A member of the RNA family "SAM riboswitch aptamer (S box leader)" from Synechococcus sp. JA-3-3Ab, 111 nucleotides long. The organism belongs to Synechococcus, within Bacteria. Gene Ontology term of the family: regulation of gene expression. Pairs were carried over by alignment from the consensus structure, which is taken from published work. About the family: The SAM riboswitch is found upstream of a number of genes which code for proteins involved in methionine or cysteine biosynthesis in Gram-positive bacteria. The SAM riboswitch acts at the level of transcription termination control. The predicted structure consists of a complex stem-loop region followed by a single stem loop terminator region. It is one of the family's seed sequences.
[Rfam]
RNA sequence: UCUUUAUCCAGAGCAGACUGAGGGAUCAGGCCCAACGAAGCUGCGGCAACCGGCGGAAGCCUCCGCUACGGUGCCAACUCCUGCGGUUAGUCAGUAACCGAAAGAUAAAGG
Numbered sequence: 001u002c003u004u005u006a007u008c009c010a011g012a013g014c015a016g017a018c019u020g021a022g023g024g025a026u027c028a029g030g031c032c033c034a035a036c037g038a039a040g041c042u043g044c045g046g047c048a049a050c051c052g053g054c055g056g057a058a059g060c061c062u063c064c065g066c067u068a069c070g071g072u073g074c075c076a077a078c079u080c081c082u083g084c085g086g087u088u089a090g091u092c093a094g095u096a097a098c099c100g101a102a103a104g105a106u107a108a109a110g111g
Stems, first nucleotide, its partner, number of pairs: 001111008013044004018040001022033003027083004045075004050071002052067004079103001084100006